[Rfam]
RNA sequence: AAGCCCCAAAAUUUGUGGCGGGUGGUAAAACUGUUUGACACAGCUUGAGCUUACUCUAGCAACAAAGUCUAACCUAUUCCAGCCCUCUGUCUUCCGUGGAACAAGCCGCUAUAUAGACCUAGUGUGA
Numbered sequence: 001a002a003g004c005c006c007c008a009a010a011a012u013u014u015g016u017g018g019c020g021g022g023u024g025g026u027a028a029a030a031c032u033g034u035u036u037g038a039c040a041c042a043g044c045u046u047g048a049g050c051u052u053a054c055u056c057u058a059g060c061a062a063c064a065a066a067g068u069c070u071a072a073c074c075u076a077u078u079c080c081a082g083c084c085c086u087c088u089g090u091c092u093u094c095c096g097u098g099g100a101a102c103a104a105g106c107c108g109c110u111a112u113a114u115a116g117a118c119c120u121a122g123u124g125u126g127a
Stems, first nucleotide, its partner, number of pairs: 012048002014042004019037006065120001067118005075113003080108001082106002088101001090099002
Small nucleolar RNA SNORA28: a 127-nucleotide RNA sequence from Phyllostomus discolor. The match comes from Rfam's covariance-model search (66 bits). Gene Ontology terms of the family: RNA processing and nucleolus. Taxonomically the source falls in Phyllostomus (Eukaryota, Opisthokonta, Sarcopterygii, Yangochiroptera). Rfam 15.1 lists 922 matches to the family in 535 species. It is annotated as an H/ACA-box small nucleolar RNA. The family's consensus secondary structure was predicted with RNAfold.